[Rfam]
RNA sequence: GGAUCACAGGUUAACGUGGUUGGGCCAUAGCAAUGUGCAUGGCUCAGGAAAGUCCCCGGGCCAAUUUCUGCAGAGAUGCAGGCUCGGCAACGAGUAACCUUCGCGCUGGCAGAUUGGCUGAGACAAGUGUGGAGCCAUCAAUUUGUCGCCGAAGCACCUGGCCAAACUUACAGUGAUCCGCGUAGGUCAUCAAAGUGCUGCGACCAACAGAACGGGGCUUACAACCUUGUGAUC
Dot-bracket structure: .(((((((((...((((((.(((((((............)))))))...[[[.[[[[...........((((....)))).(((((....)))))...((...((.(((.((((((((......(....)...))))...)))).))).)).)).......................)))))).((((.(.........).))))........]]]]]]].....)))))))))
Numbered sequence: 001g002g003a004u005c006a007c008a009g010g011u012u013a014a015c016g017u018g019g020u021u022g023g024g025c026c027a028u029a030g031c032a033a034u035g036u037g038c039a040u041g042g043c044u045c046a047g048g049a050a051a052g053u054c055c056c057c058g059g060g061c062c063a064a065u066u067u068c069u070g071c072a073g074a075g076a077u078g079c080a081g082g083c084u085c086g087g088c089a090a091c092g093a094g095u096a097a098c099c100u101u102c103g104c105g106c107u108g109g110c111a112g113a114u115u116g117g118c119u120g121a122g123a124c125a126a127g128u129g130u131g132g133a134g135c136c137a138u139c140a141a142u143u144u145g146u147c148g149c150c151g152a153a154g155c156a157c158c159u160g161g162c163c164a165a166a167c168u169u170a171c172a173g174u175g176a177u178c179c180g181c182g183u184a185g186g187u188c189a190u191c192a193a194a195g196u197g198c199u200g201c202g203a204c205c206a207a208c209a210g211a212a213c214g215g216g217g218c219u220u221a222c223a224a225c226c227u228u229g230u231g232a233u234c
Stems, first nucleotide, its partner, number of pairs: 002234009014183006021046007050220003054217004069080004082095005099154002104151002107148003111144004115137004125130001185205004190200001
The family of this 234-nucleotide RNA from Arachis hypogaea is "RNase MRP". The family's RNA type in Rfam is ribozyme. The organism belongs to Arachis, within Eukaryota.